The record is a 259-nucleotide part of an RNA from Halopiger xanaduensis, which matches "Archaeal large subunit ribosomal RNA" in Rfam.

[Rfam]
RNA sequence: GAGUGUGUCUGAUUGGCGAGUCUAACCUGAUUAUCAGGGAAGGCGUAGGGAAACCGACAUGGCCGCAGCAUUGCGAGGGCCGCCGUGUUCAAGCGCGGGGAGUCAAUCGGACACGACCCGAAACCGGAUGAUCUAGACAUGGGCAAGACGAAGCGUGCCGAAAGGCACGUGGAGGUCUGCUAGCGUUGGUGUCCUACAAUACCCUCGCGUGACCUAUGUCUAGGGGUGAAAGGCCCAUCGAAUCCGGAAACAGCUGGUU
Number, nucleotide and partner (000 for none) at each position: 001g000002a000003g000004u000005g114006u113007g112008u111009c110010u109011g108012a107013u106014u105015g104016g103017c102018g000019a000020g044021u043022c042023u041024a000025a000026c038027c037028u036029g035030a000031u000032u000033a000034u000035c029036a028037g027038g026039g000040a000041a023042g022043g021044c020045g000046u000047a000048g055049g054050g000051a000052a000053a000054c049055c048056g000057a000058c000059a000060u000061g081062g080063c079064c078065g000066c000067a000068g074069c073070a000071u000072u000073g069074c068075g000076a000077g000078g064079g063080c062081c061082g000083c000084c097085g096086u095087g094088u000089u000090c000091a000092a000093g000094c087095g086096c085097g084098g000099g000100g000101a000102g017103u016104c015105a014106a013107u012108c011109g010110g009111a008112c007113a006114c005115g000116a000117c257118c256119c000120g254121a000122a000123a000124c247125c246126g245127g244128a243129u242130g000131a000132u000133c223134u222135a221136g220137a219138c218139a217140u216141g215142g214143g213144c211145a000146a178147g177148a176149c175150g000151a000152a000153g170154c169155g168156u167157g166158c165159c164160g000161a000162a000163a000164g159165g158166c157167a156168c155169g154170u153171g000172g000173a000174g000175g149176u148177c147178u146179g000180c000181u000182a000183g208184c207185g206186u000187u000188g204189g203190u000191g202192u201193c000194c000195u000196a000197c000198a000199a000200u000201a192202c191203c189204c188205u000206c185207g184208c183209g000210u000211g144212a000213c143214c142215u141216a140217u139218g138219u137220c136221u135222a134223g133224g000225g235226g234227u233228g000229a000230a000231a000232g000233g227234c226235c225236c000237a000238u000239c000240g000241a000242a129243u128244c127245c126246g125247g124248a000249a000250a000251c000252a000253g000254c120255u000256g118257g117258u000259u000

About this RNA: Rfam's curators put it in the seed alignment. A reference for the family is Cannone et al. (2002), "The comparative RNA web (CRW) site: an online database of comparative sequence and structure information for ribosomal, intron, and other RNAs", BMC Bioinformatics. The organism belongs to Halopiger xanaduensis, within Archaea. Pairs were carried over by alignment from the consensus structure, which is taken from published work.